[Rfam]
RNA: permuted transfer-messenger RNA
Organism: Ahrensia marina
RNA sequence: GGUGAUAAAUUGGCGUUGAAAUAAACCAUUCGGACCCGGGGGCGGUACCCGGCGCCUCCACCACCAACGGUUCGCAUCGUGUUCAAAGCACGGGAACUUUUGAUGAUGGGGGCGAAAUAGGAUCGACGAGGGCGUAAAGAGCGUACUUUCACUCGGCAUGAUACCGCCGUUAUCGGGUCAUUUGUAUAGUUGCAAACGACAACUACGCGGAAGCACGUCUCGCUGCUUAA
Numbered sequence: 001g002g003u004g005a006u007a008a009a010u011u012g013g014c015g016u017u018g019a020a021a022u023a024a025a026c027c028a029u030u031c032g033g034a035c036c037c038g039g040g041g042g043c044g045g046u047a048c049c050c051g052g053c054g055c056c057u058c059c060a061c062c063a064c065c066a067a068c069g070g071u072u073c074g075c076a077u078c079g080u081g082u083u084c085a086a087a088g089c090a091c092g093g094g095a096a097c098u099u100u101u102g103a104u105g106a107u108g109g110g111g112g113c114g115a116a117a118u119a120g121g122a123u124c125g126a127c128g129a130g131g132g133c134g135u136a137a138a139g140a141g142c143g144u145a146c147u148u149u150c151a152c153u154c155g156g157c158a159u160g161a162u163a164c165c166g167c168c169g170u171u172a173u174c175g176g177g178u179c180a181u182u183u184g185u186a187u188a189g190u191u192g193c194a195a196a197c198g199a200c201a202a203c204u205a206c207g208c209g210g211a212a213g214c215a216c217g218u219c220u221c222g223c224u225g226c227u228u229a230a
Stems, first nucleotide, its partner, number of pairs: 001153005014143004026132002030129003036052005053114007154169004